[Rfam]
RNA sequence: AGGUCAUUUCAAAGAGAGCUUGUGGGAUGAAAACCAGAAGCUCUUAACUCCGUGACCAAAGAUUGAAGUUCUCCAUAGGAUAUAAUAGUCACUCAAUAGUACUAUGUUUUCCUGAGGAGAUAUAAGA
Dot-bracket structure: .((((((......((((((((.(..(........).)))))))))......))))))............(((((..((((....((((..(((....))).))))....))))..))))).......

Overview: Rfam assigns this 127-nucleotide RNA from Pteropus alecto to the family "Small nucleolar RNA SNORA25". Rfam links the family to the GO terms RNA processing and nucleolus. Pairs were carried over by alignment from the consensus structure, which was predicted with RNAfold. The source organism's lineage runs through Eukaryota, Dipnotetrapodomorpha, Laurasiatheria, Pteropodoidea and Pteropus. It scores 132 bits against the family's covariance model. ACA25 is a member of the H/ACA class of snoRNA that guide the sites of modification of uridines to pseudouridines. Rfam classes the family as an H/ACA-box small nucleolar RNA.